[Rfam]
RNA sequence: GUUUAUCUAUCGAGUUUUGUACCAAAGGUACAAAACAUCGCAUUAUUAUAUGCGGUUUGUAAACAAACCGCUUGAAAAAACUUUUUUCGGAAACUGAGGUUUCCUGCAAAAAGUCUUUAUAGGA
Numbered sequence: 001g002u003u004u005a006u007c008u009a010u011c012g013a014g015u016u017u018u019g020u021a022c023c024a025a026a027g028g029u030a031c032a033a034a035a036c037a038u039c040g041c042a043u044u045a046u047u048a049u050a051u052g053c054g055g056u057u058u059g060u061a062a063a064c065a066a067a068c069c070g071c072u073u074g075a076a077a078a079a080a081c082u083u084u085u086u087u088c089g090g091a092a093a094c095u096g097a098g099g100u101u102u103c104c105u106g107c108a109a110a111a112a113g114u115c116u117u118u119a120u121a122g123g124a
Stems, first nucleotide, its partner, number of pairs: 012039002014036010052071008076118003080114007089104006
RNA: TD-1 RNA